Description:
The record is a 166-nucleotide sequence from Blautia faecicola, which matches "Clostridiales-1 RNA" in Rfam. The family has 194 seed sequences and 1,172 matches in Rfam 15.1. The match comes from Rfam's covariance-model search (76 bits). The organism belongs to Blautia, within Bacteria.
[Rfam]
RNA sequence: GGGUGUCUGUUUUUCAGAUUAUACUCGUUUGUGCUUGCACAAUAAGGCUUUUGAACUUAGGACACGCUUGAUAUGUGAAAGUAGCGAUUUGCGUAGUAAAUCAGCGAAUUGCGAAUAUUGAGAGGAUUGCGGGAACAGCUAAGCUGCGGAGCAAUCCGUAGUAUCA
Numbered sequence: 001g002g003g004u005g006u007c008u009g010u011u012u013u014u015c016a017g018a019u020u021a022u023a024c025u026c027g028u029u030u031g032u033g034c035u036u037g038c039a040c041a042a043u044a045a046g047g048c049u050u051u052u053g054a055a056c057u058u059a060g061g062a063c064a065c066g067c068u069u070g071a072u073a074u075g076u077g078a079a080a081g082u083a084g085c086g087a088u089u090u091g092c093g094u095a096g097u098a099a100a101u102c103a104g105c106g107a108a109u110u111g112c113g114a115a116u117a118u119u120g121a122g123a124g125g126a127u128u129g130c131g132g133g134a135a136c137a138g139c140u141a142a143g144c145u146g147c148g149g150a151g152c153a154a155u156c157c158g159u160a161g162u163a164u165c166a
Stems, first nucleotide, its partner, number of pairs: 002165005010064001012062002016057002019054003023050001026047001028045001029042005067122008077112001079110002084105002086102007124157007136146003